[Rfam]
RNA sequence: CUUCAGCGACCCGAGCAGCAGCGGCUGCCCGUCCGCGCGGUCCUGCCCGUAGGUGGCCAGCAGGGCCUGGGCCUC
Numbered sequence: 001c002u003u004c005a006g007c008g009a010c011c012c013g014a015g016c017a018g019c020a021g022c023g024g025c026u027g028c029c030c031g032u033c034c035g036c037g038c039g040g041u042c043c044u045g046c047c048c049g050u051a052g053g054u055g056g057c058c059a060g061c062a063g064g065g066c067c068u069g070g071g072c073c074u075c
Base pairs, nucleotide, nucleotide: 014026015025016024032070033069038065043060044059045058047056048055049054
Rfam assigns this 75-nucleotide RNA from Kitasatospora griseola to the family "ASpks TB sRNA". The base pairs follow the family's consensus structure, which is taken from published work. On this family, see Arnvig and Young, Mol Microbiol 2009: "Identification of small RNAs in Mycobacterium tuberculosis". It scores 78 bits against the family's covariance model. It is annotated as an antisense RNA.